[Rfam]
RNA: Small nucleolar RNA SNORD74
RNA sequence: GGUGUGCUGAGAUGAUGAAAACUAUGUUGGUAGGGACAUCUGACAAUAGUGAUGUUUACCAACGUCUCUGAGCCGGCACC
Numbered sequence: 001g002g003u004g005u006g007c008u009g010a011g012a013u014g015a016u017g018a019a020a021a022c023u024a025u026g027u028u029g030g031u032a033g034g035g036a037c038a039u040c041u042g043a044c045a046a047u048a049g050u051g052a053u054g055u056u057u058a059c060c061a062a063c064g065u066c067u068c069u070g071a072g073c074c075g076g077c078a079c080c
Base pairs, nucleotide, nucleotide: 001080002079003078004077005076